The family of this 65-nucleotide sequence from Escherichia coli is "rdlD antitoxin".
The source organism's lineage runs through Bacteria, Enterobacterales, Enterobacteriaceae, Escherichia coli and Escherichia coli K-12.
The literature on the family includes a 2002 paper in Mol Microbiol by Kawano et al., "Molecular characterization of long direct repeat (LDR) sequences expressing a stable mRNA encoding for a 35-amino-acid cell-killing peptide and a cis-encoded small antisense RNA in Escherichia coli".
It is annotated as an antitoxin RNA.
Nucleotides: 065
Stems, first nucleotide, its partner, number of pairs: 016061009027051005034044003
Number, partner (000 for none) and nucleotide at each position: 001000u002000u003000c004000u005000g006000g007000u008000u009000c010000a011000a012000g013000a014000u015000u016061a017060g018059c019058c020057c021056c022055c023054g024053u025000u026000c027051u028050g029049u030048u031047g032000u033000c034044a035043g036042g037000u038000u039000g040000u041000a042036c043035c044034u045000c046000u047031c048030a049029a050028c051027g052000u053024g054023c055022g056021g057020g058019g059018g060017u061016u062000u063000u064000c065000u